[Rfam]
RNA sequence: CAACGGUGUCAGUAAUGGCAUUGUGAAUGGUAAGAAGUCAGCCGAGACCAUAGUAGUCACACCGUGACGAAGGGU
Numbered sequence: 001c002a003a004c005g006g007u008g009u010c011a012g013u014a015a016u017g018g019c020a021u022u023g024u025g026a027a028u029g030g031u032a033a034g035a036a037g038u039c040a041g042c043c044g045a046g047a048c049c050a051u052a053g054u055a056g057u058c059a060c061a062c063c064g065u066g067a068c069g070a071a072g073g074g075u
Stems, first nucleotide, its partner, number of pairs: 001025002004023008038045002047075003056068005
RNA: Group II catalytic intron D1-D4-1